[Rfam]
Rfam assigns this 62-nucleotide sequence to the family "DUF3800-IX RNA".
The sequence is in the family's curated seed alignment.
Rfam describes the family as follows. Actinobacteria, Firmicutes (1 example), Nitrospirae, Proteobacteria, Verrucomicrobia (1 example).

RNA sequence: AACUCCGGCUCGAACUGUCACCGUAUGGUGCGCGUUCCGAAAGGAUAGAGCCGGAGUUUUUU
Numbered sequence: 001a002a003c004u005c006c007g008g009c010u011c012g013a014a015c016u017g018u019c020a021c022c023g024u025a026u027g028g029u030g031c032g033c034g035u036u037c038c039g040a041a042a043g044g045a046u047a048g049a050g051c052c053g054g055a056g057u058u059u060u061u062u
Stems, first nucleotide, its partner, number of pairs: 001058011016034003019030004036045003
The family's consensus secondary structure is taken from published work.